[Rfam]
RNA sequence: AGAUUGAGAAAUCUCUGCAGGCAAAUGUGAUGUCACGAUUGCAGUUUCACAGUUACCUGUAGAGGUUCUGCAAUCU
Numbered sequence: 001a002g003a004u005u006g007a008g009a010a011a012u013c014u015c016u017g018c019a020g021g022c023a024a025a026u027g028u029g030a031u032g033u034c035a036c037g038a039u040u041g042c043a044g045u046u047u048c049a050c051a052g053u054u055a056c057c058u059g060u061a062g063a064g065g066u067u068c069u070g071c072a073a074u075c076u
Base pairs, nucleotide, nucleotide: 003074004073005072006071010067011066012065013064014063015062016061017060020058021057023054024053026051027050028049029048030047